[Rfam]
Shown here is a 49-nucleotide RNA sequence, a member of the family "Glutamine riboswitch aptamer (glnA leader)". The family's consensus secondary structure is taken from published work. Gene Ontology term of the family: glutamine binding.

RNA sequence: UACGUUCAGGCAUCAGGCCCGGAAGUAGCAUACAGCGAAGGAACGCACC
Dot-bracket structure: ..(((((.(((.....)))..[.....((.....))....)))))]...
Numbered sequence: 001u002a003c004g005u006u007c008a009g010g011c012a013u014c015a016g017g018c019c020c021g022g023a024a025g026u027a028g029c030a031u032a033c034a035g036c037g038a039a040g041g042a043a044c045g046c047a048c049c
Stems, first nucleotide, its partner, number of pairs: 003045005009019003022046001028036002